[Rfam]
The record is a 403-nucleotide RNA sequence from Paenibacillus cellulosilyticus, which matches "Bacterial RNase P class A" in Rfam. It scores 270 bits against the family's covariance model.

RNA sequence: AAAGUUUGACAGACAAUCGCUGGCGGCUAUAGGCCGCGAGAGGAAAGUCCGGGCUCCGUAGGGCAGGAUGCUGGAUAACGUCCAGUCAGCGCGAGCUGAAGGAUAGUGCCACAGAAAUGGACCGCCGAUGGCCGGCUUACGCCGGAUCAGGUAAGGGUGGAACCGUGGUGUAAGAGACCACGAGGAGUAUAGGUGACUAUAUUCCUGGUAAACCCCAUCUGGAGCAAGACCGAGAGAACGCAGCGCUGCAAAGCGCACCCUUGCCCGGGGCGUGUUCGGGUUGGUUGCUUGAGCCGUUCAGCAAUGUUCGGCCUAGAUAGAUGAUUGUCGCUAAGUAGGUGGGAGGGUCGUUCCCGUUUGCACCACCGAAAGUACAGAACCCGGCUUACGGCAAACUUUCCGC
Numbered sequence: 001a002a003a004g005u006u007u008g009a010c011a012g013a014c015a016a017u018c019g020c021u022g023g024c025g026g027c028u029a030u031a032g033g034c035c036g037c038g039a040g041a042g043g044a045a046a047g048u049c050c051g052g053g054c055u056c057c058g059u060a061g062g063g064c065a066g067g068a069u070g071c072u073g074g075a076u077a078a079c080g081u082c083c084a085g086u087c088a089g090c091g092c093g094a095g096c097u098g099a100a101g102g103a104u105a106g107u108g109c110c111a112c113a114g115a116a117a118u119g120g121a122c123c124g125c126c127g128a129u130g131g132c133c134g135g136c137u138u139a140c141g142c143c144g145g146a147u148c149a150g151g152u153a154a155g156g157g158u159g160g161a162a163c164c165g166u167g168g169u170g171u172a173a174g175a176g177a178c179c180a181c182g183a184g185g186a187g188u189a190u191a192g193g194u195g196a197c198u199a200u201a202u203u204c205c206u207g208g209u210a211a212a213c214c215c216c217a218u219c220u221g222g223a224g225c226a227a228g229a230c231c232g233a234g235a236g237a238a239c240g241c242a243g244c245g246c247u248g249c250a251a252a253g254c255g256c257a258c259c260c261u262u263g264c265c266c267g268g269g270g271c272g273u274g275u276u277c278g279g280g281u282u283g284g285u286u287g288c289u290u291g292a293g294c295c296g297u298u299c300a301g302c303a304a305u306g307u308u309c310g311g312c313c314u315a316g317a318u319a320g321a322u323g324a325u326u327g328u329c330g331c332u333a334a335g336u337a338g339g340u341g342g343g344a345g346g347g348u349c350g351u352u353c354c355c356g357u358u359u360g361c362a363c364c365a366c367c368g369a370a371a372g373u374a375c376a377g378a379a380c381c382c383g384g385c386u387u388a389c390g391g392c393a394a395a396c397u398u399u400c401c402g403c
Stems, first nucleotide, its partner, number of pairs: 001399008010390001012329007020040002023037006045387003049384005054224004061266004066220005071085005086100001087098004101215002106213002108209003122156002124152003132145005164182006184205009228286004236277006258270004293312004299306002